[Rfam]
RNA sequence: CUUCCCCUCCCUUACUCCAGUCACUCUGUACUCAGUGGGGUGGUCUGGCAUUGACAGGGGAUACAGCACCGUGGCCCUCUCACCUCUCAUCUAGGACUAUUCUCCUAUAUGAGGCUUGUGAGUGAGCGAGUUGACAAU
Numbered sequence: 001c002u003u004c005c006c007c008u009c010c011c012u013u014a015c016u017c018c019a020g021u022c023a024c025u026c027u028g029u030a031c032u033c034a035g036u037g038g039g040g041u042g043g044u045c046u047g048g049c050a051u052u053g054a055c056a057g058g059g060g061a062u063a064c065a066g067c068a069c070c071g072u073g074g075c076c077c078u079c080u081c082a083c084c085u086c087u088c089a090u091c092u093a094g095g096a097c098u099a100u101u102c103u104c105c106u107a108u109a110u111g112a113g114g115c116u117u118g119u120g121a122g123u124g125a126g127c128g129a130g131u132u133g134a135c136a137a138u
Base pairs, nucleotide, nucleotide: 003061004060005059006058007057008056011053017048018047019046020045022043023041024040025039026038027037073132074131075130077128085114086113087112088111089110090109092107093106094105095104

Shown here is a 138-nucleotide sequence from Salvelinus namaycush, a member of the family "Small nucleolar RNA SNORA49". The snoRNA ACA49 has no identified RNA target. NB genomic sequence 1-nt different from published. The family's consensus secondary structure was predicted with RNAalifold. Taxonomically the source falls in Salvelinus (Eukaryota, Chordata, Actinopteri, Salmoniformes). It scores 55 bits against the family's covariance model.